Rfam assigns this 80-nucleotide RNA from Nelumbo nucifera to the family "Small nucleolar RNA R160". Pairs were carried over by alignment from the consensus structure. The match comes from Rfam's covariance-model search (46 bits).

[Rfam]
RNA sequence: UGCAAAAUGAUGAUAUAAUAUAUCUGAACCAUAAGCUGAAGCAUUCAAAAAAUAAGUGCCUUUAAAGUUCUCUGAUUGCC
Numbered sequence: 001u002g003c004a005a006a007a008u009g010a011u012g013a014u015a016u017a018a019u020a021u022a023u024c025u026g027a028a029c030c031a032u033a034a035g036c037u038g039a040a041g042c043a044u045u046c047a048a049a050a051a052a053u054a055a056g057u058g059c060c061u062u063u064a065a066a067g068u069u070c071u072c073u074g075a076u077u078g079c080c
Base pairs, nucleotide, nucleotide: 002079003078004077005076
The source organism's lineage runs through Eukaryota, Viridiplantae, Streptophyta, Magnoliopsida and Nelumbo. Rfam describes the family as follows. snoR160 is a C/D box small nucleolar RNA, which acts as a methylation guide for 25S ribosomal RNA in plants. snoR160 has been alternatively named snoZ270 in rice. For this family Rfam cites "The high diversity of snoRNAs in plants: identification and comparative study of 120 snoRNA genes from Oryza sativa" (Chen et al., Nucleic Acids Res, 2003).